[Rfam]
Description:
The family of this 398-nucleotide RNA sequence from Nonomuraea dietziae is "Bacterial RNase P class A". Pairs were carried over by alignment from the consensus structure, which is taken from published work. By type it is a ribozyme. The organism belongs to Nonomuraea, within Bacteria.
RNA sequence: CGAGCCGGCCGGGCGGCCGCGUCGGGCCCCUUUCGGGGGCUCGCCGAGGAAGGUCCGGGCUCCACAGGGCAGGGUGGUCGGUAACGCCGACCCGGGGUGACCCGCGGGACAGUGCCACAGAGAGCAGACCGCCUUCCGGAUUUCCGGGAGGUAAGGGUGAAAGGGUGGUGUAAGAGACCACCAGCGCCCACGGUGACGUGGGCGGCUAGGUAAACCCCACCCGGAGCAAGGUCAAGAAGGGACGCUUCGCAAGAAGCGUCCCGCGCGCGACGUUCGAGGACUGCCCGUCCGAGCCGCGCGGGUAGACCGCUUGAGGCCGCCGGCAACGACGGCCCUAGAUGGAUGGUCGCCCCUUCGUUCGCGAAGGACAGAACCCGGCCUACAGGCCGGCUCGUCUC
Numbered sequence: 001c002g003a004g005c006c007g008g009c010c011g012g013g014c015g016g017c018c019g020c021g022u023c024g025g026g027c028c029c030c031u032u033u034c035g036g037g038g039g040c041u042c043g044c045c046g047a048g049g050a051a052g053g054u055c056c057g058g059g060c061u062c063c064a065c066a067g068g069g070c071a072g073g074g075u076g077g078u079c080g081g082u083a084a085c086g087c088c089g090a091c092c093c094g095g096g097g098u099g100a101c102c103c104g105c106g107g108g109a110c111a112g113u114g115c116c117a118c119a120g121a122g123a124g125c126a127g128a129c130c131g132c133c134u135u136c137c138g139g140a141u142u143u144c145c146g147g148g149a150g151g152u153a154a155g156g157g158u159g160a161a162a163g164g165g166u167g168g169u170g171u172a173a174g175a176g177a178c179c180a181c182c183a184g185c186g187c188c189c190a191c192g193g194u195g196a197c198g199u200g201g202g203c204g205g206c207u208a209g210g211u212a213a214a215c216c217c218c219a220c221c222c223g224g225a226g227c228a229a230g231g232u233c234a235a236g237a238a239g240g241g242a243c244g245c246u247u248c249g250c251a252a253g254a255a256g257c258g259u260c261c262c263g264c265g266c267g268c269g270a271c272g273u274u275c276g277a278g279g280a281c282u283g284c285c286c287g288u289c290c291g292a293g294c295c296g297c298g299c300g301g302g303u304a305g306a307c308c309g310c311u312u313g314a315g316g317c318c319g320c321c322g323g324c325a326a327c328g329a330c331g332g333c334c335c336u337a338g339a340u341g342g343a344u345g346g347u348c349g350c351c352c353c354u355u356c357g358u359u360c361g362c363g364a365a366g367g368a369c370a371g372a373a374c375c376c377g378g379c380c381u382a383c384a385g386g387c388c389g390g391c392u393c394g395u396c397u398c
Base pairs, nucleotide, nucleotide: 001394002393003392004391005390006389007388008387009386010385011383012351013350014349015348016347017346018345020046021045023043024042025041026040027039028038051381052380053379055378056377057376058375059374060226061225062224063223067286068285069284070283072222073221074220075219076218077091078090079089080088081087092106093104094103095102096101107217108216112215113214114211115210116209129156130155131152132151133150134149135148136147137146138145139144164182165181166180167179168178169177184206185204186203187202188201189200190199191198192197230308231307232306233305240299243296244295245293278290279289280288281287315334316333317332318331319330321328322327
Dot-bracket structure: ((((((((((((((((((.((.((((((.........)))))).))....[[[.[[[[[((((...[[[[.((((((((((.....)))))(((((....)))).)((...(((((............(((((((((((....)))))))))..)).......((((((.......)))))).(((((((((....)))))))).)..)))..)))))))))))))...((((......(..(((................................((((.]]]]))))..).))..).....))))......(((((.((....)).)))))..........)))))))......................]]]]]]]].).))))))))))....